[Rfam]
RNA sequence: CCCUCGUCCAAAGAAUCGCAGUCGAAGCUCACGCACGGAGACGUCCUUUCAGGGUGCUCUCGCUCCACACAAAGCUUUGGGAGAAAGUCCCCGGACAACCCCGAGUAGGGGAGUCCGCGUCAACGCGCCGCCAUAGCAGCUGCGCCGUCUCUUAGCCGUUCCCGGAUCUCCUGCACGCCCUGCUCCGAUUGCACCCGGCUGCUCCCUCUCUGUACCACCCGAGCCCCAGGCUGCUCACCACGGAUGAAGAUACGAGUCCGAGUAGCGCAAGGCUCGGGCUGUUGCGGGUUGGGUUGAAGCUGGGGAGUUGCUGGGAGACCGUGCAGGCAUCCGCGGCCGCUGGCUUGCCAGUAGCGGCGUCGAGGUUCAUUCGUCGAGAAGAUAGUCAUGCGAUUGCCUUCCACGUUCGUUGUGGACCGGAGGUAACUCGAUGGGGCUUAUUCUUGGUGCGAGG
Dot-bracket structure: .((((((((((..((((((..(((((((.........((((................))))............)))))).)...[[[.[[[[......((((.....))))...(.((((....)))).)...................................................................................................................................................................................................((....(.((((((((((....))...))))..)))).)..)).....................)))))).(((((.................))))).........]]]]]]]....)))).))))))
Numbered sequence: 001c002c003c004u005c006g007u008c009c010a011a012a013g014a015a016u017c018g019c020a021g022u023c024g025a026a027g028c029u030c031a032c033g034c035a036c037g038g039a040g041a042c043g044u045c046c047u048u049u050c051a052g053g054g055u056g057c058u059c060u061c062g063c064u065c066c067a068c069a070c071a072a073a074g075c076u077u078u079g080g081g082a083g084a085a086a087g088u089c090c091c092c093g094g095a096c097a098a099c100c101c102c103g104a105g106u107a108g109g110g111g112a113g114u115c116c117g118c119g120u121c122a123a124c125g126c127g128c129c130g131c132c133a134u135a136g137c138a139g140c141u142g143c144g145c146c147g148u149c150u151c152u153u154a155g156c157c158g159u160u161c162c163c164g165g166a167u168c169u170c171c172u173g174c175a176c177g178c179c180c181u182g183c184u185c186c187g188a189u190u191g192c193a194c195c196c197g198g199c200u201g202c203u204c205c206c207u208c209u210c211u212g213u214a215c216c217a218c219c220c221g222a223g224c225c226c227c228a229g230g231c232u233g234c235u236c237a238c239c240a241c242g243g244a245u246g247a248a249g250a251u252a253c254g255a256g257u258c259c260g261a262g263u264a265g266c267g268c269a270a271g272g273c274u275c276g277g278g279c280u281g282u283u284g285c286g287g288g289u290u291g292g293g294u295u296g297a298a299g300c301u302g303g304g305g306a307g308u309u310g311c312u313g314g315g316a317g318a319c320c321g322u323g324c325a326g327g328c329a330u331c332c333g334c335g336g337c338c339g340c341u342g343g344c345u346u347g348c349c350a351g352u353a354g355c356g357g358c359g360u361c362g363a364g365g366u367u368c369a370u371u372c373g374u375c376g377a378g379a380a381g382a383u384a385g386u387c388a389u390g391c392g393a394u395u396g397c398c399u400u401c402c403a404c405g406u407u408c409g410u411u412g413u414g415g416a417c418c419g420g421a422g423g424u425a426a427c428u429c430g431a432u433g434g435g436g437c438u439u440a441u442u443c444u445u446g447g448u449g450c451g452a453g454g
Stems, first nucleotide, its partner, number of pairs: 002454006008447004014395006022081001023079006038061004085439003089436004099111004115130001117128004326368002332364001334362004338356004342349002397423005

Annotation: This 454-nucleotide sequence from Diplodia corticola belongs to the Rfam family "RNase MRP". It is annotated as a ribozyme.